[Rfam]
RNA sequence: ACGUAGCUGAGCGCGUUUGAUAUAGUGAUAAAUGCCUGCUGCCUGGGCUCAACAUCAAAUGCAGGCAUAAACAUCGCAACUAGCAACAAGGAGGAUGGUUUUUAGUACGUAGGCAUUGCGGAACCCUCAACGUGAAGAAGUUCAGAUAGAGCAAUGAAUCGUGCAUGCUAGAGUCAUUGGUUCGACCUAGUAUCUUUCGAAGAUUUCCAUUCCUUCGCGAUC
Numbered sequence: 001a002c003g004u005a006g007c008u009g010a011g012c013g014c015g016u017u018u019g020a021u022a023u024a025g026u027g028a029u030a031a032a033u034g035c036c037u038g039c040u041g042c043c044u045g046g047g048c049u050c051a052a053c054a055u056c057a058a059a060u061g062c063a064g065g066c067a068u069a070a071a072c073a074u075c076g077c078a079a080c081u082a083g084c085a086a087c088a089a090g091g092a093g094g095a096u097g098g099u100u101u102u103u104a105g106u107a108c109g110u111a112g113g114c115a116u117u118g119c120g121g122a123a124c125c126c127u128c129a130a131c132g133u134g135a136a137g138a139a140g141u142u143c144a145g146a147u148a149g150a151g152c153a154a155u156g157a158a159u160c161g162u163g164c165a166u167g168c169u170a171g172a173g174u175c176a177u178u179g180g181u182u183c184g185a186c187c188u189a190g191u192a193u194c195u196u197u198c199g200a201a202g203a204u205u206u207c208c209a210u211u212c213c214u215u216c217g218c219g220a221u222c
Stems, first nucleotide, its partner, number of pairs: 040067006073221005090216005096209003105164005114156006121143004166192006
The family of this 222-nucleotide RNA sequence from Drosophila takahashii is "R2 RNA element". Rfam classes the family as a cis-regulatory element. Taxonomically the source falls in Sophophora (Eukaryota, Altocrustacea, Hexapoda, Eremoneura). On this family, see Ruschak et al., RNA 2004: "Secondary structure models of the 3' untranslated regions of diverse R2 RNAs". The family's consensus secondary structure is taken from published work.